The record is a 105-nucleotide RNA sequence from Aneurinibacillus sp. XH2, which matches "S10-Clostridia ribosomal protein leader" in Rfam. For this family Rfam cites "Discovery of 20 novel ribosomal leader candidates in bacteria and archaea" (Eckert and Weinberg, BMC Microbiol, 2020). By type it is a cis-regulatory leader. Lineage of the source: Bacteria > Bacillati > Bacillota > Bacilli > Aneurinibacillus.

RNA sequence: UGAAUGCGAUGAUGCGGGAGGUUGCUGACACACCAGGCUCCGAUGCCAUGGCCUGGGAUCAGGUUUUUCCGCUGAGAAUUGUCUGUUUUUCAAAAUAGGCGACAA
Numbered sequence: 001u002g003a004a005u006g007c008g009a010u011g012a013u014g015c016g017g018g019a020g021g022u023u024g025c026u027g028a029c030a031c032a033c034c035a036g037g038c039u040c041c042g043a044u045g046c047c048a049u050g051g052c053c054u055g056g057g058a059u060c061a062g063g064u065u066u067u068u069c070c071g072c073u074g075a076g077a078a079u080u081g082u083c084u085g086u087u088u089u090u091c092a093a094a095a096u097a098g099g100c101g102a103c104a105a
Stems, first nucleotide, its partner, number of pairs: 014072003018069004025062004080104004086099003
The family's consensus secondary structure is taken from published work.